terC RNA: a 55-nucleotide RNA sequence from Bradyrhizobium sp. ORS 278. It is annotated as a cis-regulatory element. The family's consensus secondary structure is taken from published work. The family has 129 seed sequences and 1,112 matches in Rfam 15.1.
Nucleotides: 055
Stems, first nucleotide, its partner, number of pairs: 006049001008047005022038006
Number, partner (000 for none) and nucleotide at each position: 001000c002000c003000g004000g005000a006049g007000a008047u009046c010045c011044g012043g013000g014000c015000c016000c017000c018000u019000c020000u021000g022038a023037u024036a025035g026034u027033c028000u029000c030000g031000a032000u033027g034026a035025c036024u037023a038022u039000g040000a041000u042000g043012u044011c045010g046009g047008a048000c049006u050000c051000u052000c053000u054000c055000a

About this RNA
The sequence is in the family's curated seed alignment. The organism belongs to Bradyrhizobium, within Bacteria.